RNA sequence: GUGAGCUUUUGGUGCGAUGUGAUUUUGUUUAAGCUUGAAAAAGUGAGAAUUUGCAACCUAAAAAAAGCUCCUAUUUGCAAGAUUGGCUUUUAUAGGGCCGAAUCUAAAUCUAUGCAUCGACCACUUGGGU
Numbered sequence: 001g002u003g004a005g006c007u008u009u010u011g012g013u014g015c016g017a018u019g020u021g022a023u024u025u026u027g028u029u030u031a032a033g034c035u036u037g038a039a040a041a042a043g044u045g046a047g048a049a050u051u052u053g054c055a056a057c058c059u060a061a062a063a064a065a066a067g068c069u070c071c072u073a074u075u076u077g078c079a080a081g082a083u084u085g086g087c088u089u090u091u092a093u094a095g096g097g098c099c100g101a102a103u104c105u106a107a108a109u110c111u112a113u114g115c116a117u118c119g120a121c122c123a124c125u126u127g128g129g130u
Stems, first nucleotide, its partner, number of pairs: 003070007018055004024049003033044004083101007
The family of this 130-nucleotide RNA from Campylobacter ureolyticus is "purD RNA motif". NCBI's taxonomy places the organism under Bacteria, Campylobacterota, Campylobacteraceae, Campylobacter, Campylobacter ureolyticus. Rfam classes the family as a cis-regulatory element. A search with the family's covariance model found it, with a score of 83 bits.